[Rfam]
This 104-nucleotide sequence from Streptomyces uncialis belongs to the Rfam family "ZMP/ZTP riboswitch aptamer (pfl RNA motif)". A search with the family's covariance model found it, with a score of 39 bits. The family's consensus secondary structure is taken from published work. Taxonomically the source falls in Streptomyces (Bacteria, Bacillati, Kitasatosporales, Streptomycetaceae).
RNA sequence: CUCAGGCACGGCGACUGGCGAGCAGGGAACCAACCCUGGGGGAGCCCUGCCUGGCCGGGCACCACGCCCCGCCGCACGAGGUGUCGUCCGCCUGGGCACCCCGG
Numbered sequence: 001c002u003c004a005g006g007c008a009c010g011g012c013g014a015c016u017g018g019c020g021a022g023c024a025g026g027g028a029a030c031c032a033a034c035c036c037u038g039g040g041g042g043a044g045c046c047c048u049g050c051c052u053g054g055c056c057g058g059g060c061a062c063c064a065c066g067c068c069c070c071g072c073c074g075c076a077c078g079a080g081g082u083g084u085c086g087u088c089c090g091c092c093u094g095g096g097c098a099c100c101c102c103g104g
Stems, first nucleotide, its partner, number of pairs: 003053006010046003015041002017092004024037004081099005